A member of the RNA family "Vault RNA" from Strongylocentrotus purpuratus, 117 nucleotides long. Taxonomically the source falls in Strongylocentrotus (Eukaryota, Opisthokonta, Deuterostomia, Echinacea). The base pairs follow the family's consensus structure, which is taken from published work. By type it is a non-coding RNA gene. Rfam's curators write: This family of RNAs are found as part of the enigmatic vault ribonucleoprotein complex. The complex consists of a major vault protein (MVP), two minor vault proteins (VPARP and TEP1), and several small untranslated RNA molecules. It has been suggested that the vault complex is involved in drug resistance. The match comes from Rfam's covariance-model search (44 bits).
RNA sequence: UGGCUGGCUUAGCAUGGUGGAUACUUCGUAUAGCAAAAUGAUUGCAUUUAUUAUUCAUAUAACACUUGUGGGUUCGAAUCCCACUGCGUAACUCUAUACGCGAGAUCCAGCAUUUUU
Numbered sequence: 001u002g003g004c005u006g007g008c009u010u011a012g013c014a015u016g017g018u019g020g021a022u023a024c025u026u027c028g029u030a031u032a033g034c035a036a037a038a039u040g041a042u043u044g045c046a047u048u049u050a051u052u053a054u055u056c057a058u059a060u061a062a063c064a065c066u067u068g069u070g071g072g073u074u075c076g077a078a079u080c081c082c083a084c085u086g087c088g089u090a091a092c093u094c095u096a097u098a099c100g101c102g103a104g105a106u107c108c109a110g111c112a113u114u115u116u117u
Base pairs, nucleotide, nucleotide: 003111004110005109006108007107012101013100015098017097018096019095020094025078026077027076028075